[Rfam]
A member of the RNA family "TPP riboswitch aptamer (THI element)" from Pseudorhizobium banfieldiae, 100 nucleotides long.
RNA sequence: ACCGAUCUAACGGGGUGCCACUUUGUGGCUGAGAGGCUUUCGCCAACCCGCAGAACCUGAUCCGGUUCACACCGGCGGAGGGAUUAGAACGGCGUCCAUC
Number, nucleotide and partner (000 for none) at each position: 001a000002c000003c000004g000005a000006u088007c087008u086009a085010a084011c050012g049013g048014g047015g000016u000017g029018c028019c027020a026021c025022u000023u000024u000025g021026u020027g019028g018029c017030u000031g000032a000033g000034a000035g000036g043037c042038u000039u000040u000041c000042g037043c036044c000045a000046a000047c014048c013049c012050g011051c000052a000053g000054a000055a000056c081057c080058u079059g000060a000061u000062c075063c074064g073065g072066u000067u000068c000069a000070c000071a000072c065073c064074g063075g062076c000077g000078g000079a058080g057081g056082g000083a000084u010085u009086a008087g007088a006089a000090c000091g000092g000093c000094g000095u000096c000097c000098a000099u000100c000

NCBI's taxonomy places the organism under Bacteria, Pseudomonadota, Alphaproteobacteria, Rhizobiaceae, Pseudorhizobium. About the family: Vitamin B(1) in its active form thiamin pyrophosphate (TPP) is an essential coenzyme that is synthesised by coupling of pyrimidine and thiazole moieties in bacteria.